This 170-nucleotide RNA sequence from Streptomyces coryli belongs to the Rfam family "Streptomyces RNA 1601". It scores 116 bits against the family's covariance model. NCBI's taxonomy places the organism under Bacteria, Bacillati, Kitasatosporales, Streptomycetaceae, Streptomyces.
RNA sequence: UCAGACCGGCCGGAUACGUGUGUGUCCGGCCCGCAAGUGGAGGCUCCGAACUCCCACCUGAUCGGCCUUACGGUCGGCAGGUCACCGGUCAAGAUGCGCCCCGCGGCCUGCCGUGGCGGUGCUCCCCCGGCAGGAGCCCCGUCACUUGUGUCCCGUUCGGGGCAUUUUUC
Numbered sequence: 001u002c003a004g005a006c007c008g009g010c011c012g013g014a015u016a017c018g019u020g021u022g023u024g025u026c027c028g029g030c031c032c033g034c035a036a037g038u039g040g041a042g043g044c045u046c047c048g049a050a051c052u053c054c055c056a057c058c059u060g061a062u063c064g065g066c067c068u069u070a071c072g073g074u075c076g077g078c079a080g081g082u083c084a085c086c087g088g089u090c091a092a093g094a095u096g097c098g099c100c101c102c103g104c105g106g107c108c109u110g111c112c113g114u115g116g117c118g119g120u121g122c123u124c125c126c127c128c129g130g131c132a133g134g135a136g137c138c139c140c141g142u143c144a145c146u147u148g149u150g151u152c153c154c155g156u157u158c159g160g161g162g163c164a165u166u167u168u169u170c
Stems, first nucleotide, its partner, number of pairs: 004090006012027002028083004034060002037057004041052002062077006098163006104155003112150003115143005121137005
By type it is a small RNA. Identified by deep sequencing of transcriptome at the end of exponential growth phase. Appears longer on northern blot than sequencing transcript.